[Rfam]
RNA sequence: GUGCAUAUGAUGAGUUACUCGGAUUCCCCUUCAAGACUCGGAUUCCCCUAUUUGCA
Numbered sequence: 001g002u003g004c005a006u007a008u009g010a011u012g013a014g015u016u017a018c019u020c021g022g023a024u025u026c027c028c029c030u031u032c033a034a035g036a037c038u039c040g041g042a043u044u045c046c047c048c049u050a051u052u053u054g055c056a
Stems, first nucleotide, its partner, number of pairs: 002056004

Source information
The record is a 56-nucleotide sequence from Cicer arietinum, which matches "Small nucleolar RNA snoR60" in Rfam. By type it is a C/D-box small nucleolar RNA. The family's consensus secondary structure was predicted with PFOLD. The source organism's lineage runs through Eukaryota, Euphyllophyta, rosids, fabids and Cicer.